[Rfam]
RNA sequence: CAGUUCCAGCGUGGCUUUUGAAUCAGCAGCAUUCAUUAGUGGGCCUCUGCAGCAGGAACAAGUCACAAUGAGACUG
Numbered sequence: 001c002a003g004u005u006c007c008a009g010c011g012u013g014g015c016u017u018u019u020g021a022a023u024c025a026g027c028a029g030c031a032u033u034c035a036u037u038a039g040u041g042g043g044c045c046u047c048u049g050c051a052g053c054a055g056g057a058a059c060a061a062g063u064c065a066c067a068a069u070g071a072g073a074c075u076g
Stems, first nucleotide, its partner, number of pairs: 001076005007070001011066005019035005044056003
This 76-nucleotide RNA sequence from Ramazzottius varieornatus belongs to the Rfam family "bZIP non canonical Hac1/Xbp1 intron". The family has 112 seed sequences and 1,325 matches in Rfam 15.1. Lineage of the source: Eukaryota > Eumetazoa > Hypsibioidea > Ramazzottiidae > Ramazzottius. It is annotated as a small RNA.